[Rfam]
RNA sequence: CUUCAUGGACCCCAGCCACAGCGGCCGGCGCGAGUGCCGGUCGGACGUGCGGCUCUGACCGUAGGUCGCCAGCAGCGCCGCCGCCUC
Numbered sequence: 001c002u003u004c005a006u007g008g009a010c011c012c013c014a015g016c017c018a019c020a021g022c023g024g025c026c027g028g029c030g031c032g033a034g035u036g037c038c039g040g041u042c043g044g045a046c047g048u049g050c051g052g053c054u055c056u057g058a059c060c061g062u063a064g065g066u067c068g069c070c071a072g073c074a075g076c077g078c079c080g081c082c083g084c085c086u087c
Base pairs, nucleotide, nucleotide: 015025016024017023042083043082044081050077051076055072056071057070059068061066